U2 spliceosomal RNA: a 196-nucleotide sequence from Triticum aestivum. The family's RNA type in Rfam is spliceosomal small nuclear RNA. NCBI's taxonomy places the organism under Eukaryota, Streptophytina, Tracheophyta, Petrosaviidae, Triticum.
RNA sequence: AUACCUUUCUCGGCCUUUUGGCUAAAAUCAAGUGUAGUGUCUGUUCUUAUCAGUUUAAUAUUUGAUAUGUGGGCCAUGUGCCCAAAACGAUAUUAAAUUUAUUUUUUAUGGGGGAGGGUCCACCACAGUGGCUUGCCAUUGGGGCCCUCGGGUGUCGCCUGGACGUUGCACUACAGCCUAGGCAGGCGCACCCCAC
Numbered sequence: 001a002u003a004c005c006u007u008u009c010u011c012g013g014c015c016u017u018u019u020g021g022c023u024a025a026a027a028u029c030a031a032g033u034g035u036a037g038u039g040u041c042u043g044u045u046c047u048u049a050u051c052a053g054u055u056u057a058a059u060a061u062u063u064g065a066u067a068u069g070u071g072g073g074c075c076a077u078g079u080g081c082c083c084a085a086a087a088c089g090a091u092a093u094u095a096a097a098u099u100u101a102u103u104u105u106u107u108a109u110g111g112g113g114g115a116g117g118g119u120c121c122a123c124c125a126c127a128g129u130g131g132c133u134u135g136c137c138a139u140u141g142g143g144g145c146c147c148u149c150g151g152g153u154g155u156c157g158c159c160u161g162g163a164c165g166u167u168g169c170a171c172u173a174c175a176g177c178c179u180a181g182g183c184a185g186g187c188g189c190a191c192c193c194c195a196c
Stems, first nucleotide, its partner, number of pairs: 008027001010025001012023004048067006070084005114149008128139004152189005159181004164176001
Background:
Gene Ontology terms of the family: pre-mRNA branch point binding, U2 snRNP and mRNA branch site recognition. The family's consensus secondary structure is taken from published work. Rfam's curators write: U2 is a small nuclear RNA (snRNA) component of the spliceosome (involved in pre-mRNA splicing). Complementary binding between U2 snRNA (in an area lying towards the 5' end but 3' to hairpin I) and the branchpoint sequence (BPS) of the intron results the bulging out of an unpaired adenosine, on the BPS, which initiates a nucleophilic attack at the intronic 5' splice site, thus starting the first of two transesterification reactions that mediate splicing.